This 236-nucleotide sequence from Patellaria atrata belongs to the Rfam family "Small nucleolar RNA snR191". The family's consensus secondary structure was predicted with WAR. Rfam links the family to the GO terms nucleolus and RNA processing.
[Rfam]
RNA sequence: AUCCAUAGUUAAGUCAAGGUUACUUCCCGUACUACGUACGACUCGAUGGAAGAUACCUGUUACAACUGUGGGAGAAUAACUACCUCCGCCCCUCUCAAUGCCGUACUGGUUGCGAGAAGAUCUGGCUCGUUUUGAGCUGGAUCACCAAGGAGCGUAGAUGUUUCAUUUAUGAGUUGAGGAACAACGCUGUCUUUGGCAGCCCCAUGUUGUUUUUCAUAGUAAUGAUCCAUACAACC
Numbered sequence: 001a002u003c004c005a006u007a008g009u010u011a012a013g014u015c016a017a018g019g020u021u022a023c024u025u026c027c028c029g030u031a032c033u034a035c036g037u038a039c040g041a042c043u044c045g046a047u048g049g050a051a052g053a054u055a056c057c058u059g060u061u062a063c064a065a066c067u068g069u070g071g072g073a074g075a076a077u078a079a080c081u082a083c084c085u086c087c088g089c090c091c092c093u094c095u096c097a098a099u100g101c102c103g104u105a106c107u108g109g110u111u112g113c114g115a116g117a118a119g120a121u122c123u124g125g126c127u128c129g130u131u132u133u134g135a136g137c138u139g140g141a142u143c144a145c146c147a148a149g150g151a152g153c154g155u156a157g158a159u160g161u162u163u164c165a166u167u168u169a170u171g172a173g174u175u176g177a178g179g180a181a182c183a184a185c186g187c188u189g190u191c192u193u194u195g196g197c198a199g200c201c202c203c204a205u206g207u208u209g210u211u212u213u214u215c216a217u218a219g220u221a222a223u224g225a226u227c228c229a230u231a232c233a234a235c236c
Base pairs, nucleotide, nucleotide: 003071004070005069006068007067017058018057019056020055023052024051025050026049028040029039030038031037032036082155083154084152085151086150087149092116093115094114096112097111100110101109102108121141122140123139124138125137126136127135128134129133158230159229160228163225164224165223166222175216176215177214178213179212182209183208184207185206187199188198189197